This 340-nucleotide sequence from Hericium alpestre belongs to the Rfam family "RNase MRP". For this family Rfam cites "Secondary structure of RNase MRP RNA as predicted by phylogenetic comparison" (Schmitt et al., FASEB J, 1993). The family is grouped with related families in Rfam's "RNaseP clan". Rfam links the family to the GO terms ribonuclease MRP complex, ribonuclease MRP activity and rRNA processing. It is annotated as a ribozyme.

[Rfam]
RNA sequence: GCGCUGUCCGAAGAAUCGCCAUCGCAGCUCACGCACAGGAAGCCCCGCGCUCCCCUCUUCCAGCUGUGGGGAAAGUCCCCGGAGGCGCAGAGCGUGCUUCACUCCUGCGCGCACCCGGAAAGCGGCCGCCUCUAAUCGGGCGGCGCGCGCGCCAGGACUCGACUGUCCUCGCUCCUCCCCCCGUGGAGGAAGUGCAGGCAGACGGAGGCUCUGCAGCCCGGAGCUUGGUCGCAACGCGAAGAUACGAGCGGACCGGCUCUGCAGGCAUUGUUGCUCAUUGACACAGUUAUGCGAUUGCCGACGCGUUCGGUAACACAAUGGGGCUCACUCUUGGGCGGCG
Numbered sequence: 001g002c003g004c005u006g007u008c009c010g011a012a013g014a015a016u017c018g019c020c021a022u023c024g025c026a027g028c029u030c031a032c033g034c035a036c037a038g039g040a041a042g043c044c045c046c047g048c049g050c051u052c053c054c055c056u057c058u059u060c061c062a063g064c065u066g067u068g069g070g071g072a073a074a075g076u077c078c079c080c081g082g083a084g085g086c087g088c089a090g091a092g093c094g095u096g097c098u099u100c101a102c103u104c105c106u107g108c109g110c111g112c113a114c115c116c117g118g119a120a121a122g123c124g125g126c127c128g129c130c131u132c133u134a135a136u137c138g139g140g141c142g143g144c145g146c147g148c149g150c151g152c153c154a155g156g157a158c159u160c161g162a163c164u165g166u167c168c169u170c171g172c173u174c175c176u177c178c179c180c181c182c183g184u185g186g187a188g189g190a191a192g193u194g195c196a197g198g199c200a201g202a203c204g205g206a207g208g209c210u211c212u213g214c215a216g217c218c219c220g221g222a223g224c225u226u227g228g229u230c231g232c233a234a235c236g237c238g239a240a241g242a243u244a245c246g247a248g249c250g251g252a253c254c255g256g257c258u259c260u261g262c263a264g265g266c267a268u269u270g271u272u273g274c275u276c277a278u279u280g281a282c283a284c285a286g287u288u289a290u291g292c293g294a295u296u297g298c299c300g301a302c303g304c305g306u307u308c309g310g311u312a313a314c315a316c317a318a319u320g321g322g323g324c325u326c327a328c329u330c331u332u333g334g335g336c337g338g339c340g
Base pairs, nucleotide, nucleotide: 002340003339004338005337006336007335008334009333010332011331014296015295016294017293018292019291022069023068024067025066026065027064028063039053041051042050043049074325075324077323078322079321080320087097088096089095205268207266211264212263213262214261215260216259218256219255220254229251230250231249232248298310299309300308301307